[Rfam]
RNA sequence: AAUCAUAACCUAUGUAAGUCGCUCUGGAUGAGAGCGUCUGCUAAGUGGCAGUAU
Numbered sequence: 001a002a003u004c005a006u007a008a009c010c011u012a013u014g015u016a017a018g019u020c021g022c023u024c025u026g027g028a029u030g031a032g033a034g035c036g037u038c039u040g041c042u043a044a045g046u047g048g049c050a051g052u053a054u
Stems, first nucleotide, its partner, number of pairs: 013043001014041003020036006
The family of this 54-nucleotide sequence from Megalops atlanticus is "UnaL2 LINE 3' element".
Its family is annotated with transposition, RNA-mediated in the Gene Ontology.
The family's RNA type in Rfam is cis-regulatory element.
The organism belongs to Megalops, within Eukaryota.